[Rfam]
RNA sequence: GCUCCCCUUCCUUACUCCAGGCUCCUCUUACGCAGUGGGGGGUCCUGGCAUUGUCUGGGGACAGAGCAAACGUCUCGCUUGCUAGUCUGGCUGGGCUUGUGUUCCUUCUGGGGUCCGCGUGUGAGCCGACAUG
Numbered sequence: 001g002c003u004c005c006c007c008u009u010c011c012u013u014a015c016u017c018c019a020g021g022c023u024c025c026u027c028u029u030a031c032g033c034a035g036u037g038g039g040g041g042g043u044c045c046u047g048g049c050a051u052u053g054u055c056u057g058g059g060g061a062c063a064g065a066g067c068a069a070a071c072g073u074c075u076c077g078c079u080u081g082c083u084a085g086u087c088u089g090g091c092u093g094g095g096c097u098u099g100u101g102u103u104c105c106u107u108c109u110g111g112g113g114u115c116c117g118c119g120u121g122u123g124a125g126c127c128g129a130c131a132u133g
Stems, first nucleotide, its partner, number of pairs: 003061005011053001017048005023041005072127001074125001076123002086112005093106003
RNA: Small nucleolar RNA SNORA49